A member of the RNA family "glmS glucosamine-6-phosphate activated ribozyme aptamer" from Paenibacillus anaericanus, 232 nucleotides long. On this family, see Winkler et al., Nature 2004: "Control of gene expression by a natural metabolite-responsive ribozyme". It is annotated as a riboswitch. It scores 73 bits against the family's covariance model.
RNA sequence: ACAGCAUAAUAAGCGCCAGAGCUUCAUUUCGCGCGGGGGAGAUUGUCCAUAGGAAGGAGAACAUCUUGUUUCUCGCUUUACCCAUAUGGAUUUAUUCCACGGCAAAUGCAAGCUGACGAGGUGGAGGUGUUCGAAUGUUCGGCGGGGGCCUCCCGGUAACGCAUCUAAGCCGUAACCGACAAAGACAAAAGGAAUGGGCGACUAUUCCCACAAACUUUUCGGAGAGAUGCAU
Numbered sequence: 001a002c003a004g005c006a007u008a009a010u011a012a013g014c015g016c017c018a019g020a021g022c023u024u025c026a027u028u029u030c031g032c033g034c035g036g037g038g039g040a041g042a043u044u045g046u047c048c049a050u051a052g053g054a055a056g057g058a059g060a061a062c063a064u065c066u067u068g069u070u071u072c073u074c075g076c077u078u079u080a081c082c083c084a085u086a087u088g089g090a091u092u093u094a095u096u097c098c099a100c101g102g103c104a105a106a107u108g109c110a111a112g113c114u115g116a117c118g119a120g121g122u123g124g125a126g127g128u129g130u131u132c133g134a135a136u137g138u139u140c141g142g143c144g145g146g147g148g149c150c151u152c153c154c155g156g157u158a159a160c161g162c163a164u165c166u167a168a169g170c171c172g173u174a175a176c177c178g179a180c181a182a183a184g185a186c187a188a189a190a191g192g193a194a195u196g197g198g199c200g201a202c203u204a205u206u207c208c209c210a211c212a213a214a215c216u217u218u219u220c221g222g223a224g225a226g227a228u229g230c231a232u
Stems, first nucleotide, its partner, number of pairs: 020114005123153005131142004154172004176222004181218003191208007